[Rfam]
RNA: Plastid-ndhJ 3UTR RNA
Organism: Camellia sinensis
RNA sequence: GAUAGGCCUUUGUUCCGCACAUCACUUAGAUGGGCUCCGGAAAGCAACAUACGAA
Numbered sequence: 001g002a003u004a005g006g007c008c009u010u011u012g013u014u015c016c017g018c019a020c021a022u023c024a025c026u027u028a029g030a031u032g033g034g035c036u037c038c039g040g041a042a043a044g045c046a047a048c049a050u051a052c053g054a055a
Stems, first nucleotide, its partner, number of pairs: 017035002020032004